Rfam assigns this 143-nucleotide RNA sequence from Hyunsoonleella pacifica to the family "Flavo-1 RNA". Pairs were carried over by alignment from the consensus structure, which is taken from published work.

RNA sequence: CGUUAGCGUUAGGGAUUGCAGUGGCAUCCUUUUUAAAACAUUGAAAAGCUUAAGUUUAUAAUGGGUGUUUAAGAUUGCUACGUCGUAAACGCCUCGCAAUGACCGUAGUUUUUAAAAAGAUAUAGCGUAAAGCCCGACCCGAG
Numbered sequence: 001c002g003u004u005a006g007c008g009u010u011a012g013g014g015a016u017u018g019c020a021g022u023g024g025c026a027u028c029c030u031u032u033u034u035a036a037a038a039c040a041u042u043g044a045a046a047a048g049c050u051u052a053a054g055u056u057u058a059u060a061a062u063g064g065g066u067g068u069u070u071a072a073g074a075u076u077g078c079u080a081c082g083u084c085g086u087a088a089a090c091g092c093c094u095c096g097c098a099a100u101g102a103c104c105g106u107a108g109u110u111u112u113u114a115a116a117a118a119g120a121u122a123u124a125g126c127g128u129a130a131a132g133c134c135c136g137a138c139c140c141g142a143g
Stems, first nucleotide, its partner, number of pairs: 012135003016131002021126002026121003032116007

Taxonomically the source falls in Hyunsoonleella (Bacteria, Pseudomonadati, Flavobacteriales, Flavobacteriaceae). Rfam classes the family as a small RNA.